Rfam assigns this 66-nucleotide RNA from Escherichia albertii to the family "rdlD antitoxin". For this family Rfam cites "Molecular characterization of long direct repeat (LDR) sequences expressing a stable mRNA encoding for a 35-amino-acid cell-killing peptide and a cis-encoded small antisense RNA in Escherichia coli" (Kawano et al., Mol Microbiol, 2002). Taxonomically the source falls in Escherichia albertii (Bacteria, Enterobacterales, Enterobacteriaceae, Escherichia).

Nucleotides: 066
Stems, first nucleotide, its partner, number of pairs: 017062004023056003028052005036044001
Number, partner (000 for none) and nucleotide at each position: 001000g002000u003000u004000u005000g006000g007000g008000u009000u010000c011000a012000a013000g014000a015000u016000u017062a018061g019060c020059c021000c022000c023056c024055g025054u026000g027000a028052u029051g030050u031049u032048g033000u034000c035000a036044g037000g038000u039000g040000a041000a042000u043000a044036c045000c046000u047000a048032c049031a050030a051029c052028g053000u054025g055024c056023g057000u058000u059020g060019g061018u062017u063000u064000u065000c066000u